[Rfam]
RNA: Archaeal large subunit ribosomal RNA, nucleotides 546 to 642
RNA sequence: GUUAGGGCGCCAAAGGAUCUUUCUUUCGAAGGAAACGGUGGCAACGCCGCAGUACGAGAGAGACUGCCAGCGUUCUAACAUGCGUUUUGAAGAACGA
Numbered sequence: 001g002u003u004a005g006g007g008c009g010c011c012a013a014a015g016g017a018u019c020u021u022u023c024u025u026u027c028g029a030a031g032g033a034a035a036c037g038g039u040g041g042c043a044a045c046g047c048c049g050c051a052g053u054a055c056g057a058g059a060g061a062g063a064c065u066g067c068c069a070g071c072g073u074u075c076u077a078a079c080a081u082g083c084g085u086u087u088u089g090a091a092g093a094a095c096g097a
Stems, first nucleotide, its partner, number of pairs: 001079010015068002022063006031055001036049005083096003